[Rfam]
RNA: Alphaproteobacteria transfer-messenger RNA
Organism: Rhodovulum sp. 12E13
RNA sequence: GCCCUUGAAACGGCGCUUCGCCCUGCGUAUCUUCCCACUGUCCCGUCAGGGACUAUGGCGAUAAACGCGCCCGUAAUAAGCGGAUCGGACCCGGGGGCGGUACCCGGCGGCUCCACCAUAAACCCUUCAUUGGCGGGGAUCAUGGGGCCGAAACAGGAUCGACGGACGUCUAAAGGGGUUAGCUUUCGCCCGGUGAGGUACCACCGUUAUCGGUCCAAGCAUGAUAGUUGCCAAUGACAACCGUGCUGCGGUGGCCGUCGCUGCGUAAGCAGUGACCAAACCGAAAUCUCAAGCCCUUGCGUCUAGCAACGCAAGGCGGGGUUCGCAGGCACCUGGCAACAGAAGCCUGCAUC
Number, nucleotide and partner (000 for none) at each position: 001g000002c000003c000004c000005u000006u000007g000008a000009a000010a000011c000012g000013g000014c000015g000016c000017u000018u000019c000020g000021c000022c000023c000024u000025g000026c000027g000028u000029a000030u000031c000032u000033u000034c000035c000036c000037a000038c000039u000040g053041u052042c051043c050044c049045g000046u000047c000048a000049g044050g043051g042052a041053c040054u000055a000056u000057g190058g189059c188060g187061a186062u000063a000064a000065a000066c000067g183068c182069g179070c178071c177072c176073g000074u000075a000076a000077u000078a000079a000080g000081c168082g167083g000084a000085u165086c164087g163088g000089a000090c000091c107092c106093g105094g104095g103096g000097g000098c000099g000100g000101u000102a000103c095104c094105c093106g092107g091108c150109g149110g148111c147112u146113c145114c144115a000116c000117c000118a000119u000120a000121a000122a000123c000124c000125c000126u000127u000128c000129a000130u000131u000132g000133g000134c000135g000136g000137g000138g000139a000140u000141c000142a000143u000144g114145g113146g112147g111148c110149c109150g108151a000152a000153a000154c000155a000156g000157g000158a000159u000160c000161g000162a000163c087164g086165g085166a000167c082168g081169u000170c000171u000172a000173a000174a000175g000176g072177g071178g070179u069180u000181a000182g068183c067184u000185u000186u061187c060188g059189c058190c057191c206192g205193g204194u203195g000196a000197g216198g215199u000200a214201c213202c212203a194204c193205c192206g191207u000208u000209a000210u000211c000212g202213g201214u200215c198216c197217a000218a000219g000220c000221a000222u000223g000224a000225u000226a000227g000228u000229u000230g000231c000232c000233a000234a000235u000236g000237a000238c000239a000240a000241c000242c000243g000244u000245g000246c000247u000248g000249c000250g000251g000252u000253g000254g000255c000256c000257g000258u000259c000260g000261c000262u000263g000264c000265g000266u000267a000268a000269g000270c000271a000272g000273u000274g000275a000276c000277c000278a000279a000280a000281c000282c000283g000284a000285a000286a000287u000288c000289u000290c000291a000292a000293g000294c000295c000296c000297u000298u000299g000300c000301g000302u000303c000304u000305a000306g000307c000308a000309a000310c000311g000312c000313a000314a000315g000316g000317c000318g000319g334320g333321g332322u331323u000324c000325g350326c349327a348328g347329g346330c345331a322332c321333c320334u319335g000336g000337c000338a000339a000340c000341a000342g000343a000344a000345g330346c329347c328348u327349g326350c325351a000352u000353c000